[Rfam]
RNA sequence: CGGUGAGGUAGAGGUGCAGACAAUAUUAUUAAUUAGCGUGAGAAUGACAUCGAUGAUUGCUGAUGAAAGGAUUGGUUGCCGAAGCGUAGUAAGGGUCGAACUUAUUACUGCUGGUAUAUCUUUGAAUAAAGGAUAUACUGUCGUGCAUGGUGUGCAUGGAGGACUACUGAUCGA
Numbered sequence: 001c002g003g004u005g006a007g008g009u010a011g012a013g014g015u016g017c018a019g020a021c022a023a024u025a026u027u028a029u030u031a032a033u034u035a036g037c038g039u040g041a042g043a044a045u046g047a048c049a050u051c052g053a054u055g056a057u058u059g060c061u062g063a064u065g066a067a068a069g070g071a072u073u074g075g076u077u078g079c080c081g082a083a084g085c086g087u088a089g090u091a092a093g094g095g096u097c098g099a100a101c102u103u104a105u106u107a108c109u110g111c112u113g114g115u116a117u118a119u120c121u122u123u124g125a126a127u128a129a130a131g132g133a134u135a136u137a138c139u140g141u142c143g144u145g146c147a148u149g150g151u152g153u154g155c156a157u158g159g160a161g162g163a164c165u166a167c168u169g170a171u172c173g174a
Stems, first nucleotide, its partner, number of pairs: 007168005016079004021074004032064007083112004087107007113139011141159007
The family of this 174-nucleotide sequence from Virgibacillus necropolis is "Lysine riboswitch aptamer". Lineage of the source: Bacteria > Bacillati > Bacillota > Bacilli > Virgibacillus. The family has 47 seed sequences and 3,224 matches in Rfam 15.1.